The family of this 137-nucleotide RNA from Oceanodroma tethys is "Small nucleolar RNA SNORA55". A search with the family's covariance model found it, with a score of 100 bits.

RNA sequence: GCAUCUGAAUCUUUCCCACUAUAUCCCAGCGAUAUAGUGCUGGACUGGGGACACACGAUGCAACAGGAAAGCAGAGGAAAUCCAGACGAGUUUUCUUUCACCUCAGUGGGACUUGUCUCUACGCUUUUGCAACAUUU
Numbered sequence: 001g002c003a004u005c006u007g008a009a010u011c012u013u014u015c016c017c018a019c020u021a022u023a024u025c026c027c028a029g030c031g032a033u034a035u036a037g038u039g040c041u042g043g044a045c046u047g048g049g050g051a052c053a054c055a056c057g058a059u060g061c062a063a064c065a066g067g068a069a070a071g072c073a074g075a076g077g078a079a080a081u082c083c084a085g086a087c088g089a090g091u092u093u094u095c096u097u098u099c100a101c102c103u104c105a106g107u108g109g110g111a112c113u114u115g116u117c118u119c120u121a122c123g124c125u126u127u128u129g130c131a132a133c134a135u136u137u
Stems, first nucleotide, its partner, number of pairs: 001061005013051006025043002071130006084118008098109003
Record summary:
The family's consensus secondary structure was predicted with PFOLD.